[Rfam]
RNA sequence: GCGUAGGCUUAGUCGAGUGGUUACAUCGCAUUUGUUGGACUUACCUCCAACUUCUCAAUGGGAACUGACCAGUGACGCCGUCCUACGUUUUG
Numbered sequence: 001g002c003g004u005a006g007g008c009u010u011a012g013u014c015g016a017g018u019g020g021u022u023a024c025a026u027c028g029c030a031u032u033u034g035u036u037g038g039a040c041u042u043a044c045c046u047c048c049a050a051c052u053u054c055u056c057a058a059u060g061g062g063a064a065c066u067g068a069c070c071a072g073u074g075a076c077g078c079c080g081u082c083c084u085a086c087g088u089u090u091u092g
Base pairs, nucleotide, nucleotide: 002087003086004085005084006083007082012076013075014074015073018071019070020069026068027067028066
Shown here is a 92-nucleotide sequence from Trichonephila clavata, a member of the family "Vault RNA". It is annotated as a non-coding RNA gene.